The family of this 74-nucleotide RNA sequence is "RT-6 RNA".
RNA sequence: UGCUUUACAAGUAUGUUGUAAAGGAAUGGUAUUGUUGUCAACAGUUCUAACAAACAUUUAUAAGAAAUGGUUUG
Dot-bracket structure: ..((((((((.....))))))))...............................(((((....))).)).....
The sequence is in the family's curated seed alignment. Pairs were carried over by alignment from the consensus structure, which is taken from published work. Rfam classes the family as a small RNA.